[Rfam]
RNA: Bacterial RNase P class B
Organism: Firmicutes bacterium CAG:308
RNA sequence: GGGUCUAGACAGUCGCUGGCGUUAAGCUAGAGGAAAGUCCAUGCUCGCACGAUCUGUGAUGAUCGUAGUGUUUGUGCUAGAUGAAUUAAUAAGUCUAGGCAGGUCCCAACCUGACGGCCGUCGAUUUUCCUAAGGGAAACUAUGGAAAUAGACUAUAAAAGUGCCACAGAGACGAGUCAAUAUGGAAACAUAUUGAGUGGAACGGGUAAACCCCGCAAGCGAGAAACCCAAAUUUGGUAGGGGAGUCAGCCGGAUUGAAACGAAAUGAAGGCUGGAUAACGAAAGUUAUAGAUAAAUGACUGUCACUGACUUGUCAGAACAGAACAUGGCUUAUUGA
Numbered sequence: 001g002g003g004u005c006u007a008g009a010c011a012g013u014c015g016c017u018g019g020c021g022u023u024a025a026g027c028u029a030g031a032g033g034a035a036a037g038u039c040c041a042u043g044c045u046c047g048c049a050c051g052a053u054c055u056g057u058g059a060u061g062a063u064c065g066u067a068g069u070g071u072u073u074g075u076g077c078u079a080g081a082u083g084a085a086u087u088a089a090u091a092a093g094u095c096u097a098g099g100c101a102g103g104u105c106c107c108a109a110c111c112u113g114a115c116g117g118c119c120g121u122c123g124a125u126u127u128u129c130c131u132a133a134g135g136g137a138a139a140c141u142a143u144g145g146a147a148a149u150a151g152a153c154u155a156u157a158a159a160a161g162u163g164c165c166a167c168a169g170a171g172a173c174g175a176g177u178c179a180a181u182a183u184g185g186a187a188a189c190a191u192a193u194u195g196a197g198u199g200g201a202a203c204g205g206g207u208a209a210a211c212c213c214c215g216c217a218a219g220c221g222a223g224a225a226a227c228c229c230a231a232a233u234u235u236g237g238u239a240g241g242g243g244a245g246u247c248a249g250c251c252g253g254a255u256u257g258a259a260a261c262g263a264a265a266u267g268a269a270g271g272c273u274g275g276a277u278a279a280c281g282a283a284a285g286u287u288a289u290a291g292a293u294a295a296a297u298g299a300c301u302g303u304c305a306c307u308g309a310c311u312u313g314u315c316a317g318a319a320c321a322g323a324a325c326a327u328g329g330c331u332u333a334u335u336g337a
Stems, first nucleotide, its partner, number of pairs: 006336001007334001008304007016030005035332003039329005044223005049066006072218005077098006099115001100113005116213002120153003127147004134141002161211002163207003177196008227242003246275006276289005306317004